[Rfam]
RNA: SAM riboswitch aptamer (S box leader)
Nucleotides: 104
Stems, first nucleotide, its partner, number of pairs: 002103007013042005021031003025076004043068004048064002050061003072096001077093006
Number, partner (000 for none) and nucleotide at each position: 001000c002103a003102c004101u005100u006099a007098u008097c009000c010000a011000g012000a013042a014041a015040g016039a017038c018000g019000g020000a021031g022030g023029g024000a025076u026075a027074g028073g029023c030022c031021c032000u033000g034000u035000g036000a037000a038017g039016u040015c041014u042013u043068a044067g045066c046065a047000a048064c049063c050061u051060g052059u053000u054000g055000u056000a057000a058000u059052a060051c061050a062000a063049g064048g065046u066045g067044c068043u069000a070000a071000u072096u073028c074027c075026u076025g077093u078092c079091u080090g081089c082088a083000c084000g085000g086000a087000g088082u089081g090080c091079a092078g093077a094000a095000a096072a097008g098007a099006u100005a101004a102003g103002u104000u